[Rfam]
RNA sequence: UGCCUCCCUCUGUGGGGCAAUCGAUCGCGGGGCCCCCAGAUAGAUUGCUCCGCAGAGGGAGGCC
Numbered sequence: 001u002g003c004c005u006c007c008c009u010c011u012g013u014g015g016g017g018c019a020a021u022c023g024a025u026c027g028c029g030g031g032g033c034c035c036c037c038a039g040a041u042a043g044a045u046u047g048c049u050c051c052g053c054a055g056a057g058g059g060a061g062g063c064c
Stems, first nucleotide, its partner, number of pairs: 002063021024041003029036002